This 412-nucleotide RNA sequence belongs to the Rfam family "Saccharopolyspora sRNA 350". The family's consensus secondary structure was predicted with RNAfold.

[Rfam]
RNA sequence: UCGACGUCGACGUCGUCAUCGUCGUCGUCGACAGAUCGUCGACGACGAUCGACGUCGACGACGUCGAUAGAUCGUCGUCGACGUCGUCGUCGUCGACGACGACGUCGUCGACGACGUCGAUCGACGAUGUCGUCGACGACGAUCGACGAUCGACGACGAUCGACACGUCGAUCGAUCGUCGACGACGACGAUCGUCGUCGACGAUCGACGUCGAUCGUCGACGAUCGUCGUCGUCGAUCGUCGAUCGUCGUCGACGAUCGAUCGACGACGACGAUAUAGACGUCGACGAUCGAUCGACGAUCGACGUCGUCGUCGACGACGACAUCGUCGACAGUCGUCAUCGACGACGAUCGUCGAUAGAUAGAUAGAUAGAUCGUCGUAGACGUCGUCGACGAUAGACGACGACGAUCGA
Numbered sequence: 001u002c003g004a005c006g007u008c009g010a011c012g013u014c015g016u017c018a019u020c021g022u023c024g025u026c027g028u029c030g031a032c033a034g035a036u037c038g039u040c041g042a043c044g045a046c047g048a049u050c051g052a053c054g055u056c057g058a059c060g061a062c063g064u065c066g067a068u069a070g071a072u073c074g075u076c077g078u079c080g081a082c083g084u085c086g087u088c089g090u091c092g093u094c095g096a097c098g099a100c101g102a103c104g105u106c107g108u109c110g111a112c113g114a115c116g117u118c119g120a121u122c123g124a125c126g127a128u129g130u131c132g133u134c135g136a137c138g139a140c141g142a143u144c145g146a147c148g149a150u151c152g153a154c155g156a157c158g159a160u161c162g163a164c165a166c167g168u169c170g171a172u173c174g175a176u177c178g179u180c181g182a183c184g185a186c187g188a189c190g191a192u193c194g195u196c197g198u199c200g201a202c203g204a205u206c207g208a209c210g211u212c213g214a215u216c217g218u219c220g221a222c223g224a225u226c227g228u229c230g231u232c233g234u235c236g237a238u239c240g241u242c243g244a245u246c247g248u249c250g251u252c253g254a255c256g257a258u259c260g261a262u263c264g265a266c267g268a269c270g271a272c273g274a275u276a277u278a279g280a281c282g283u284c285g286a287c288g289a290u291c292g293a294u295c296g297a298c299g300a301u302c303g304a305c306g307u308c309g310u311c312g313u314c315g316a317c318g319a320c321g322a323c324a325u326c327g328u329c330g331a332c333a334g335u336c337g338u339c340a341u342c343g344a345c346g347a348c349g350a351u352c353g354u355c356g357a358u359a360g361a362u363a364g365a366u367a368g369a370u371a372g373a374u375c376g377u378c379g380u381a382g383a384c385g386u387c388g389u390c391g392a393c394g395a396u397a398g399a400c401g402a403c404g405a406c407g408a409u410c411g412a
Base pairs, nucleotide, nucleotide: 006332007331008330009329010328011327012326015323016322019271020270022268023267025265026264027263029260030259036257037256038255039254040253041252042251043250044249045248046247047246048245049244050243051242053174054172055171056170057169058168059167060166062110063109065107072102073101074100075099076098078096079095080094081093082092116164117163118162119161121159122158125155126154128152129151131148132147133146134145135144136143175238176237177236178235181232182231183230184229185228186227191225192224193223194222195221196220200219201218202217204215205214206213272285273284274283275282294319295318296317298315299314300313302312303311304310305309344380345379346378347377349375350374351373352372354369355368357366358365382410384407385406386405388403389402390401391400
It scores 72 bits against the family's covariance model.